RNA sequence: CUCCUGUGAUGAACUCUUGAGACAUUGUGUCUGGGCCACUGAUGCUUCAUGAUGGUAAUGAGGAUCUGAGGGG
Dot-bracket structure: ((((.................................................................))))
This 73-nucleotide sequence from Calypte anna belongs to the Rfam family "Small nucleolar RNA SNORD66". The base pairs follow the family's consensus structure, which was predicted with RNAalifold. Rfam 15.1 lists 1,346 matches to the family in 614 species. It scores 70 bits against the family's covariance model. snoRNA HBII-142 is part of the C/D family of snoRNAs. It is the human orthologue of the mouse MBII-142 snoRNA and is predicted to guide 2'O-ribose methylation of small 18S rRNA at residue C1272.